[Rfam]
Nucleotides: 137
Stems, first nucleotide, its partner, number of pairs: 013124002017120004023114003027110004032105001034103005040097006
Number, partner (000 for none) and nucleotide at each position: 001000u002000u003000c004000a005000c006000c007000g008000c009000g010000g011000u012000c013124u014123c015000c016000g017120a018119u019118u020117c021000a022000g023114u024113u025112g026000a027110u028109g029108c030107a031000a032105g033000g034103c035102g036101g037100g038099a039000u040097c041096c042095g043094u044093u045092u046000c047000g048000c049000c050000c051000c052000g053000c054000a055000g056000c057000c058000u059000c060000g061000a062000g063000c064000c065000a066000g067000c068000u069000g070000g071000u072000u073000u074000a075000u076000a077000g078000g079000c080000u081000c082000a083000a084000a085000c086000g087000g088000g089000g090000c091000g092045a093044a094043g095042c096041g097040g098000u099038u100037c101036c102035c103034g104000a105032c106000c107030u108029g109028c110027a111000c112025c113024a114023a115000g116000c117020g118019a119018a120017u121000u122000a123014g124013a125000g126000a127000c128000c129000g130000c131000c132000a133000g134000g135000a136000a137000a
Shown here is a 137-nucleotide sequence from Malus domestica, a member of the family "MIR168 microRNA precursor family". The source organism's lineage runs through Eukaryota, Viridiplantae, Euphyllophyta, Gunneridae and Malus. Rfam links the family to the GO terms miRNA-mediated post-transcriptional gene silencing and RISC complex. The literature on the family includes a 2002 paper in Genes Dev by Reinhart et al., "MicroRNAs in plants".